Shown here is a 156-nucleotide sequence from Paenibacillus sp. CAA11, a member of the family "FMN riboswitch aptamer (RFN element)".
The match comes from Rfam's covariance-model search (115 bits).
The source organism's lineage runs through Bacteria, Bacillati, Caryophanales, Paenibacillaceae and Paenibacillus.
[Rfam]
RNA sequence: UAGGAUCUUCGGGGUGAGGUGAAAUUCCUAACCGGCGGUGAGGCUCAUUAUACGAGCUUAAGCCCGCGACUCCCUAAUUUAUCUAGAAUAUAAAUUGGGGACUGACUCGGUGUAAUUCCGAGGCCGACGGUAAAGUCCGGAUGGAAGAAGGUCAUU
Numbered sequence: 001u002a003g004g005a006u007c008u009u010c011g012g013g014g015u016g017a018g019g020u021g022a023a024a025u026u027c028c029u030a031a032c033c034g035g036c037g038g039u040g041a042g043g044c045u046c047a048u049u050a051u052a053c054g055a056g057c058u059u060a061a062g063c064c065c066g067c068g069a070c071u072c073c074c075u076a077a078u079u080u081a082u083c084u085a086g087a088a089u090a091u092a093a094a095u096u097g098g099g100g101a102c103u104g105a106c107u108c109g110g111u112g113u114a115a116u117u118c119c120g121a122g123g124c125c126g127a128c129g130g131u132a133a134a135g136u137c138c139g140g141a142u143g144g145a146a147g148a149a150g151g152u153c154a155u156u
Base pairs, nucleotide, nucleotide: 004153005152006151007150008149009148010147017029018028019027031136032135033126034125035067036066037065038064062124063123071101072100073099074098075097076096077095106122107121108120109119110118128139129138130137